[Rfam]
RNA sequence: GCCGCGCCUAGGCUGAUCCCCGAAAGCCGGGCACCUUCCCCGGUUGGCGCGGCACCCCUUGGAGGG
Numbered sequence: 001g002c003c004g005c006g007c008c009u010a011g012g013c014u015g016a017u018c019c020c021c022g023a024a025a026g027c028c029g030g031g032c033a034c035c036u037u038c039c040c041c042g043g044u045u046g047g048c049g050c051g052g053c054a055c056c057c058c059u060u061g062g063a064g065g066g
Stems, first nucleotide, its partner, number of pairs: 001053008011021002027043005034066005